[Rfam]
RNA sequence: GGGAAACGGGGUAGGGGCUGGGGCUGUGAGCCACCCCGAGCCCUGAGCAGCAUAGGCUCG
Numbered sequence: 001g002g003g004a005a006a007c008g009g010g011g012u013a014g015g016g017g018c019u020g021g022g023g024c025u026g027u028g029a030g031c032c033a034c035c036c037c038g039a040g041c042c043c044u045g046a047g048c049a050g051c052a053u054a055g056g057c058u059c060g
Stems, first nucleotide, its partner, number of pairs: 014044006021037003028059005
RNA: Ma3 gene ribosomal frameshift signal